[Rfam]
RNA: Nuclear RNase P
RNA sequence: UCAGGGGGAAGCUUGCACCAGGGACUCUCGCACGGAGUACUUGUUACUCAUCUAUGUCCCGGGAAGGUCUGAGUAAGAGCCGCUCUACACUCUAGCAGGGUGCAUCUCUUGAUGAGAGGUGGGAGACUAGGAAUGUCAAGGUGGUCUUAAUCCUGGGACGUCUUUAGGCUGAGGUGUGGCCAUCUUGUUGGAAACUCCCAUGGCUGGCAUUUUGAGUGCAAUGUGCAAGGCUUUUUUCGUAACUCAAUUCAGACUAUUCUUUCUCUGA
Numbered sequence: 001u002c003a004g005g006g007g008g009a010a011g012c013u014u015g016c017a018c019c020a021g022g023g024a025c026u027c028u029c030g031c032a033c034g035g036a037g038u039a040c041u042u043g044u045u046a047c048u049c050a051u052c053u054a055u056g057u058c059c060c061g062g063g064a065a066g067g068u069c070u071g072a073g074u075a076a077g078a079g080c081c082g083c084u085c086u087a088c089a090c091u092c093u094a095g096c097a098g099g100g101u102g103c104a105u106c107u108c109u110u111g112a113u114g115a116g117a118g119g120u121g122g123g124a125g126a127c128u129a130g131g132a133a134u135g136u137c138a139a140g141g142u143g144g145u146c147u148u149a150a151u152c153c154u155g156g157g158a159c160g161u162c163u164u165u166a167g168g169c170u171g172a173g174g175u176g177u178g179g180c181c182a183u184c185u186u187g188u189u190g191g192a193a194a195c196u197c198c199c200a201u202g203g204c205u206g207g208c209a210u211u212u213u214g215a216g217u218g219c220a221a222u223g224u225g226c227a228a229g230g231c232u233u234u235u236u237u238c239g240u241a242a243c244u245c246a247a248u249u250c251a252g253a254c255u256a257u258u259c260u261u262u263c264u265c266u267g268a
Stems, first nucleotide, its partner, number of pairs: 001268004007262003012229007021060005035049005069252005078205004088102005103118001105117004119201007137187010230240002
Dot-bracket structure: ((((..(((..(((((((..(((((.........(((((.....)))))......)))))........[[[[[....((((......(((((.....)))))(.((((.....)))))(((((((...........((((((((((...............................)))))))))).......))))))))))).................)))))))((.......)).......]]]]].......)))..))))